[Rfam]
The family of this 92-nucleotide RNA from Etheostoma spectabile is "Small nucleolar RNA SNORD14". A search with the family's covariance model found it, with a score of 69 bits. The organism belongs to Oligocephalus, within Eukaryota. U14 small nucleolar RNA (U14 snoRNA) is required for early cleavages of eukaryotic precursor rRNAs. A reference for the family is Samarsky et al. (1996), "An essential domain in Saccharomyces cerevisiae U14 snoRNA is absent in vertebrates, but conserved in other yeasts", Nucleic Acids Res. It is annotated as a C/D-box small nucleolar RNA.

RNA sequence: UCGCUGUGAUGAUGCUUUUCCGCCAUUCGUAGUUUCCACCAGAGGUCCUAAGGACCAGAGAUGGCCCAAACCUUCCUUGGAUGUCUGAGCGA
Numbered sequence: 001u002c003g004c005u006g007u008g009a010u011g012a013u014g015c016u017u018u019u020c021c022g023c024c025a026u027u028c029g030u031a032g033u034u035u036c037c038a039c040c041a042g043a044g045g046u047c048c049u050a051a052g053g054a055c056c057a058g059a060g061a062u063g064g065c066c067c068a069a070a071c072c073u074u075c076c077u078u079g080g081a082u083g084u085c086u087g088a089g090c091g092a
Stems, first nucleotide, its partner, number of pairs: 001092004045056001046054003